[Rfam]
RNA sequence: UCUCGAUAAAGGCAAACCUGGUGAAAACCAGCGACGCAAAGCUACAGGGGCUACAGCGACAAGGUGCGCUAUGCCAGCCAGCUACCGAA
Numbered sequence: 001u002c003u004c005g006a007u008a009a010a011g012g013c014a015a016a017c018c019u020g021g022u023g024a025a026a027a028c029c030a031g032c033g034a035c036g037c038a039a040a041g042c043u044a045c046a047g048g049g050g051c052u053a054c055a056g057c058g059a060c061a062a063g064g065u066g067c068g069c070u071a072u073g074c075c076a077g078c079c080a081g082c083u084a085c086c087g088a089a
Stems, first nucleotide, its partner, number of pairs: 012037002018031005040083004047079002049075003056069003
This 89-nucleotide RNA sequence from Paenibacillus mucilaginosus belongs to the Rfam family "c-di-GMP-I riboswitch aptamer". GEMM was predicted in a large-scale screen for bacterial structured RNA regulatory elements. Genes associated with GEMM are involved in a diverse array of functions, including chemotaxis regulation, signal transduction, secretion and chitin. NCBI's taxonomy places the organism under Bacteria, Bacillati, Bacillota, Caryophanales, Paenibacillus mucilaginosus.